[Rfam]
RNA sequence: UUGACAGAAGAGAGUGAGCACCCAUGGUGAUCUCUUGCAUGAAAAGUCUGCAUGCUCGAAUCCAUGUGUGCUCACGUCUCUUCCUGUCAA
Numbered sequence: 001u002u003g004a005c006a007g008a009a010g011a012g013a014g015u016g017a018g019c020a021c022c023c024a025u026g027g028u029g030a031u032c033u034c035u036u037g038c039a040u041g042a043a044a045a046g047u048c049u050g051c052a053u054g055c056u057c058g059a060a061u062c063c064a065u066g067u068g069u070g071c072u073c074a075c076g077u078c079u080c081u082u083c084c085u086g087u088c089a090a
Stems, first nucleotide, its partner, number of pairs: 001090007009082001010080004014075008023066003